A member of the RNA family "TPP riboswitch aptamer (THI element)" from Faecalibacterium duncaniae, 107 nucleotides long.

RNA sequence: AACAAAACACAGGGGAGCUCGUGAGGCGGGCUGAGAGGAAGUAACCAAACUUCGACCCUUGACCUGAUGCGGAUAAUGCCGCCGUAGGAAGUCAUAGGAAAAUGAUU
Numbered sequence: 001a002a003c004a005a006a007a008c009a010c011a012g013g014g015g016a017g018c019u020c021g022u023g024a025g026g027c028g029g030g031c032u033g034a035g036a037g038g039a040a041g042u043a044a045c046c047a048a049a050c051u052u053c054g055a056c057c058c059u060u061g062a063c064c065u066g067a068u069g070c071g072g073a074u075a076a077u078g079c080c081g082c083c084g085u086a087g088g089a090a091g092u093c094a095u096a097g098g099a100a101a102a103u104g105a106u107u
Base pairs, nucleotide, nucleotide: 006095009092010091011059012058013057014056017031018030019029020028021027038053039052040051041050042049063088064087065086066085069082070081071080072079
Taxonomically the source falls in Faecalibacterium (Bacteria, Bacillati, Bacillota, Oscillospiraceae). It scores 68 bits against the family's covariance model. The base pairs follow the family's consensus structure, which is taken from published work. From the family's description: Vitamin B(1) in its active form thiamin pyrophosphate (TPP) is an essential coenzyme that is synthesised by coupling of pyrimidine and thiazole moieties in bacteria. The previously detected thiamin-regulatory element, thi box was extended, resulting in a new, highly conserved RNA secondary structure, the THI element, which is widely distributed in eubacteria and also occurs in some archaea.